The record is a 76-nucleotide sequence from Oceanobacillus halophilus, which matches "Glycine riboswitch aptamer" in Rfam. Pairs were carried over by alignment from the consensus structure. A search with the family's covariance model found it, with a score of 49 bits.

RNA sequence: GGAGCAGCUUCUGGAGAGACCGUUAACUCGGCGCCGAAGGAUUCACAAUCUCAGGCAAAAGGACAGAAGAGUACGU
Numbered sequence: 001g002g003a004g005c006a007g008c009u010u011c012u013g014g015a016g017a018g019a020c021c022g023u024u025a026a027c028u029c030g031g032c033g034c035c036g037a038a039g040g041a042u043u044c045a046c047a048a049u050c051u052c053a054g055g056c057a058a059a060a061g062g063a064c065a066g067a068a069g070a071g072u073a074c075g076u
Stems, first nucleotide, its partner, number of pairs: 008069006020031003033056003036052002040050003
Source information: The source organism's lineage runs through Bacteria, Bacillati, Bacillota, Bacilli and Oceanobacillus.